[Rfam]
RNA sequence: UUAAGGUCUGCGGAAGAGUUCGGAGGGCCUUCCUCCGGCGCCGAAGGAGCAACCGCCCCGGAAACUCUCAGGCAAAAGGACCGCAGACCGAUG
Numbered sequence: 001u002u003a004a005g006g007u008c009u010g011c012g013g014a015a016g017a018g019u020u021c022g023g024a025g026g027g028c029c030u031u032c033c034u035c036c037g038g039c040g041c042c043g044a045a046g047g048a049g050c051a052a053c054c055g056c057c058c059c060g061g062a063a064a065c066u067c068u069c070a071g072g073c074a075a076a077a078g079g080a081c082c083g084c085a086g087a088c089c090g091a092u093g
Base pairs, nucleotide, nucleotide: 006088007087008086009085010084011083012082013081020038021037022036023035040073041072042071043069044068047067048066049065053061054060